[Rfam]
RNA sequence: AGUUGGUCCAAGUGCAGUGGUGUUUACAACUAAUUGAUCACAACUAAUUACAGAUUCCUUUGUUUCUUCUCCAUUCCCACUGCCUCUUUUGACCAGCCUAAA
Number, nucleotide and partner (000 for none) at each position: 001a000002g097003u096004u095005g094006g093007u092008c091009c000010a090011a089012g000013u000014g086015c000016a081017g080018u079019g078020g077021u000022g076023u000024u000025u000026a000027c000028a064029a063030c062031u000032a060033a059034u000035u000036g000037a000038u000039c000040a000041c000042a000043a000044c000045u000046a000047a000048u000049u000050a000051c000052a000053g000054a000055u000056u000057c000058c000059u033060u032061u000062g030063u029064u028065u000066c000067u000068u000069c000070u000071c000072c000073a000074u000075u000076c022077c020078c019079a018080c017081u016082g000083c000084c000085u000086c014087u000088u000089u011090u010091g008092a007093c006094c005095a004096g003097c002098c000099u000100a000101a000102a000

This 102-nucleotide RNA sequence from Microcebus murinus belongs to the Rfam family "Y RNA". Lineage of the source: Eukaryota > Opisthokonta > Chordata > Cheirogaleidae > Microcebus. It scores 69 bits against the family's covariance model. Y RNAs are components of the Ro ribonucleoprotein particle (Ro RNP), in association with Ro60 and La proteins.